[Rfam]
RNA sequence: GGAGUUGGCUAGGCAGUCGCUCCGCCUAGCGGCGGGGAGGAAAGUCCGGGCUCCACAGGGCAGGAUGCCAGGUAACGCCUGGGCGGCGCGAGCCGACGGAAAGUGCCACAGAAAACAGACCGCCGAUGGUCCUUUCGGGGAUACAGGUAAGGGUGAAAAGGUGCGGUAAGAGCGCACCGCGCGGGUGGCAACAUGCCGCGGCACGGUAAACCCCAUCCGGAGCAAGACCAAAUAGGGACGCCAUGAUGUGGCCCGCAUCGCGUCCGGGUAGGUCGCUUGAGGCGUGCGGCGACGUACGCCCCAGAUGAAUGGCUGCCCCCGACAGAACCCGGCUUAUCGGCCGACUCCCCAC
Numbered sequence: 001g002g003a004g005u006u007g008g009c010u011a012g013g014c015a016g017u018c019g020c021u022c023c024g025c026c027u028a029g030c031g032g033c034g035g036g037g038a039g040g041a042a043a044g045u046c047c048g049g050g051c052u053c054c055a056c057a058g059g060g061c062a063g064g065a066u067g068c069c070a071g072g073u074a075a076c077g078c079c080u081g082g083g084c085g086g087c088g089c090g091a092g093c094c095g096a097c098g099g100a101a102a103g104u105g106c107c108a109c110a111g112a113a114a115a116c117a118g119a120c121c122g123c124c125g126a127u128g129g130u131c132c133u134u135u136c137g138g139g140g141a142u143a144c145a146g147g148u149a150a151g152g153g154u155g156a157a158a159a160g161g162u163g164c165g166g167u168a169a170g171a172g173c174g175c176a177c178c179g180c181g182c183g184g185g186u187g188g189c190a191a192c193a194u195g196c197c198g199c200g201g202c203a204c205g206g207u208a209a210a211c212c213c214c215a216u217c218c219g220g221a222g223c224a225a226g227a228c229c230a231a232a233u234a235g236g237g238a239c240g241c242c243a244u245g246a247u248g249u250g251g252c253c254c255g256c257a258u259c260g261c262g263u264c265c266g267g268g269u270a271g272g273u274c275g276c277u278u279g280a281g282g283c284g285u286g287c288g289g290c291g292a293c294g295u296a297c298g299c300c301c302c303a304g305a306u307g308a309a310u311g312g313c314u315g316c317c318c319c320c321g322a323c324a325g326a327a328c329c330c331g332g333c334u335u336a337u338c339g340g341c342c343g344a345c346u347c348c349c350c351a352c
Stems, first nucleotide, its partner, number of pairs: 001348010011337001012317007020037007042335003046332005051222004058254004063218005068082005083097001084095004098213002103211002105207003120152002122148003129142005160178006179202001180200005185194003226274004236265006245259005281300008